[Rfam]
RNA sequence: UAGAAAUUCUAUCUAUAAAUGGAUAAAACUUCGGUAUUAAUCUAUAUGAGUAGUUAUUGAAAUUAAAGCUAAAGGAGCAAUAUUAAACUUAUAUCAAGAAGUUUAGUAUUGCUCCUUU
Numbered sequence: 001u002a003g004a005a006a007u008u009c010u011a012u013c014u015a016u017a018a019a020u021g022g023a024u025a026a027a028a029c030u031u032c033g034g035u036a037u038u039a040a041u042c043u044a045u046a047u048g049a050g051u052a053g054u055u056a057u058u059g060a061a062a063u064u065a066a067a068g069c070u071a072a073a074g075g076a077g078c079a080a081u082a083u084u085a086a087a088c089u090u091a092u093a094u095c096a097a098g099a100a101g102u103u104u105a106g107u108a109u110u111g112c113u114c115c116u117u118u
Stems, first nucleotide, its partner, number of pairs: 008023005071118013085104003089097002